[Rfam]
RNA sequence: CAUAUAUUUUAUGAUGGUAUGAUAUUAAACCCCUAAUGGGCAGGAUUGUGCCUGAUGUUUAUAUG
Numbered sequence: 001c002a003u004a005u006a007u008u009u010u011a012u013g014a015u016g017g018u019a020u021g022a023u024a025u026u027a028a029a030c031c032c033c034u035a036a037u038g039g040g041c042a043g044g045a046u047u048g049u050g051c052c053u054g055a056u057g058u059u060u061a062u063a064u065g
Stems, first nucleotide, its partner, number of pairs: 001065005016052008025043001031040003

Shown here is a 65-nucleotide RNA sequence from Mytilus edulis, a member of the family "Selenocysteine insertion sequence 1". From the family's description: The incorporation of selenocysteine into a protein sequence is directed by an in-frame UGA codon (usually a stop codon) within the coding region of the mRNA. Selenoprotein mRNAs contain a conserved secondary structure in the 3' UTR that is required for the distinction of UGA stop from UGA selenocysteine. The selenocysteine insertion sequence (SECIS) is around 60 nt in length and adopts a hairpin structure which is sufficiently well-defined and conserved to act as a computational screen for selenoprotein genes. By type it is a cis-regulatory element. Its family is annotated with selenocysteine incorporation in the Gene Ontology. The family's consensus secondary structure is taken from published work.